[Rfam]
RNA sequence: CCGGGGCGGCCAGCUCCCGGAUUGUUCAGACGGUGUCCCGUCCAAGCGUGGC
Numbered sequence: 001c002c003g004g005g006g007c008g009g010c011c012a013g014c015u016c017c018c019g020g021a022u023u024g025u026u027c028a029g030a031c032g033g034u035g036u037c038c039c040g041u042c043c044a045a046g047c048g049u050g051g052c
Base pairs, nucleotide, nucleotide: 001020002019003018004017005016006015009052010051011050012049029042030041031040032039033038